[Rfam]
RNA: DUF3800-XI RNA
RNA sequence: UGGGCUGAACAUUAUGCGUUCCUGGUCCAUCGACAGGCGGGGAUAUACCUC
Numbered sequence: 001u002g003g004g005c006u007g008a009a010c011a012u013u014a015u016g017c018g019u020u021c022c023u024g025g026u027c028c029a030u031c032g033a034c035a036g037g038c039g040g041g042g043a044u045a046u047a048c049c050u051c
Stems, first nucleotide, its partner, number of pairs: 001029006007021004